[Rfam]
RNA: MIR2629 microRNA precursor family
Organism: Medicago truncatula
RNA sequence: UGCCGAAGUUUUCCUCGACAGUUAACUGCAGCUGAUUCUUUAAAAUUUCGGCAGUUAACGGCCGAGGGGUAU
Numbered sequence: 001u002g003c004c005g006a007a008g009u010u011u012u013c014c015u016c017g018a019c020a021g022u023u024a025a026c027u028g029c030a031g032c033u034g035a036u037u038c039u040u041u042a043a044a045a046u047u048u049c050g051g052c053a054g055u056u057a058a059c060g061g062c063c064g065a066g067g068g069g070u071a072u
Stems, first nucleotide, its partner, number of pairs: 012068002015065003019061001021059009